[Rfam]
RNA sequence: UGUUUGCCGCAGUAGCUCUGCGCCAGAAAGGAGCCAGUAAUGGUAAGUGGUAGCCGUCGUUAAAUCCUAGUCAACUGCUUUAGAGGCUUUAGCUGCCCGUAAAACGGCAACUAAUGUCCGAUAAGAGAGCUUUUGGCGACACCGUCAAAUUGCGGGAAACUCGCGAAGCAUUCUGCUACCAAGCCAACGUGUCGAAAGCCGUUAGUGGCCAGGCUAACUCCCUGGGUACGGUAAAAACGCAGUCUGUAUGUGACAAUCCGCAGCCAAGCUCCCCUGCUACGGCGAGGAGAAGGUUCAGAGACUAAAUGGCGGUGGGUCAGUGUAGUACCCGAAAACUGGUCGCUAUAACAGCUGGCUUAAGAUAUAGUCCGGGCCCUCUCGAAAGACUGUGGCAUUGCAAGGUACAACCCUAUAAAACGGGAGCCUGCGGCUUAAUUUAACUCAACACGGGGAAACUUA
Numbered sequence: 001u002g003u004u005u006g007c008c009g010c011a012g013u014a015g016c017u018c019u020g021c022g023c024c025a026g027a028a029a030g031g032a033g034c035c036a037g038u039a040a041u042g043g044u045a046a047g048u049g050g051u052a053g054c055c056g057u058c059g060u061u062a063a064a065u066c067c068u069a070g071u072c073a074a075c076u077g078c079u080u081u082a083g084a085g086g087c088u089u090u091a092g093c094u095g096c097c098c099g100u101a102a103a104a105c106g107g108c109a110a111c112u113a114a115u116g117u118c119c120g121a122u123a124a125g126a127g128a129g130c131u132u133u134u135g136g137c138g139a140c141a142c143c144g145u146c147a148a149a150u151u152g153c154g155g156g157a158a159a160c161u162c163g164c165g166a167a168g169c170a171u172u173c174u175g176c177u178a179c180c181a182a183g184c185c186a187a188c189g190u191g192u193c194g195a196a197a198g199c200c201g202u203u204a205g206u207g208g209c210c211a212g213g214c215u216a217a218c219u220c221c222c223u224g225g226g227u228a229c230g231g232u233a234a235a236a237a238c239g240c241a242g243u244c245u246g247u248a249u250g251u252g253a254c255a256a257u258c259c260g261c262a263g264c265c266a267a268g269c270u271c272c273c274c275u276g277c278u279a280c281g282g283c284g285a286g287g288a289g290a291a292g293g294u295u296c297a298g299a300g301a302c303u304a305a306a307u308g309g310c311g312g313u314g315g316g317u318c319a320g321u322g323u324a325g326u327a328c329c330c331g332a333a334a335a336c337u338g339g340u341c342g343c344u345a346u347a348a349c350a351g352c353u354g355g356c357u358u359a360a361g362a363u364a365u366a367g368u369c370c371g372g373g374c375c376c377u378c379u380c381g382a383a384a385g386a387c388u389g390u391g392g393c394a395u396u397g398c399a400a401g402g403u404a405c406a407a408c409c410c411u412a413u414a415a416a417a418c419g420g421g422a423g424c425c426u427g428c429g430g431c432u433u434a435a436u437u438u439a440a441c442u443c444a445a446c447a448c449g450g451g452g453a454a455a456c457u458u459a
Base pairs, nucleotide, nucleotide: 003451004450005449006448
The record is a 459-nucleotide part of an RNA from Dothidotthia symphoricarpi, which matches "Eukaryotic small subunit ribosomal RNA" in Rfam.
A search with the family's covariance model found it, with a score of 1528 bits.
Lineage of the source: Eukaryota > Ascomycota > Pezizomycotina > Dothideomycetes > Dothidotthia symphoricarpi.